[Rfam]
RNA sequence: CUCCUCGAAAUAUAUUGAGGUAUAGCCUCGAGUGUUUGUUUAUGGGUGUAGAGCACUGAAUCGGCUAGGGGUCCCACCAGAUUACCAAACCGAAUCAAACUCCGAAUCCCAUAAGCCCAAGCUCGGGAGUCAGAGCGCGAGAGAUAAGUUUCGUGCUCGAGAGGGAAACAGCCCAGACUAUCAGCUAAGGUCCUUAAGUGUGUGUUAAGUGGAAAAGGAUGUGGGUUUGCCCGGACAACCAGGAGGUUGGCUUAGAAGCAGCCAUCCUUUAAAGAAAGCGUAAUAGCUCACUGGUCGAGUGAACCUGCGCCGAAAAUAUAACGGGGCUCAAACACACCACCGAAGCUAUAGGAUCAACCAAGUUGUUGAUCGGUAGAGGAGCGUUGUGUACAGCGAUGAAGGUGUUUCGUAAGGAAUGCUGGAGCGUACACGAGUGAUCCU
Number, nucleotide and partner (000 for none) at each position: 001c381002u380003c379004c378005u377006c376007g000008a000009a000010a000011u024012a023013u022014a021015u020016u000017g000018a000019g000020g015021u014022a013023u012024a011025g000026c129027c127028u126029c125030g124031a123032g122033u121034g000035u000036u120037u000038g116039u115040u114041u113042a112043u111044g110045g109046g108047u000048g000049u000050a000051g103052a101053g100054c000055a000056c000057u097058g096059a095060a000061u093062c092063g091064g090065c000066u000067a000068g086069g085070g083071g082072u081073c080074c000075c000076a000077c000078c000079a000080g073081a072082u071083u070084a000085c069086c068087a000088a000089a000090c064091c063092g062093a061094a000095u059096c058097a057098a000099a000100c053101u052102c000103c051104g000105a000106a000107u000108c046109c045110c044111a043112u042113a041114a040115g039116c038117c000118c000119a000120a036121g033122c032123u031124c030125g029126g028127g027128a000129g026130u000131c000132a000133g158134a157135g156136c155137g154138c153139g152140a151141g150142a149143g000144a000145u000146a000147a000148g000149u142150u141151u140152c139153g138154u137155g136156c135157u134158c133159g000160a000161g000162a000163g174164g173165g172166a000167a000168a000169c000170a000171g000172c165173c164174c163175a000176g000177a000178c351179u350180a349181u348182c000183a347184g346185c345186u000187a000188a000189g341190g340191u339192c000193c000194u000195u000196a000197a000198g338199u000200g337201u336202g335203u334204g333205u332206u000207a000208a000209g000210u000211g000212g000213a000214a000215a000216a000217g311218g310219a000220u000221g308222u307223g306224g305225g304226u303227u302228u301229g300230c299231c000232c000233g000234g000235a000236c000237a000238a295239c294240c293241a292242g291243g000244a268245g267246g266247u000248u000249g263250g262251c261252u000253u000254a000255g000256a000257a000258g000259c000260a000261g251262c250263c249264a000265u000266c246267c245268u244269u273270u000271a000272a000273a269274g289275a000276a000277a000278g287279c286280g000281u000282a000283a000284u000285a000286g279287c278288u000289c274290a000291c242292u241293g240294g239295u238296c000297g000298a000299g230300u229301g228302a227303a226304c225305c224306u223307g222308c221309g000310c218311c217312g000313a000314a000315a000316a000317u000318a000319u000320a000321a000322c000323g000324g000325g000326g000327c000328u000329c000330a000331a000332a205333c204334a203335c202336a201337c200338c198339a191340c190341c189342g000343a000344a000345g185346c184347u183348a181349u180350a179351g178352g371353a370354u369355c368356a367357a366358c365359c000360a000361a000362g000363u000364u000365g358366u357367u356368g355369a354370u353371c352372g000373g000374u000375a000376g006377a005378g004379g003380a002381g001382c436383g000384u433385u432386g431387u430388g429389u428390a427391c000392a000393g425394c424395g000396a000397u000398g000399a000400a000401g420402g419403u418404g417405u416406u415407u414408c413409g000410u000411a000412a000413g408414g407415a406416a405417u404418g403419c402420u401421g000422g000423a000424g394425c393426g000427u390428a389429c388430a387431c386432g385433a384434g000435u000436g382437a000438u000439c000440c000441u000
RNA: Bacterial large subunit ribosomal RNA, nucleotides 814 to 1254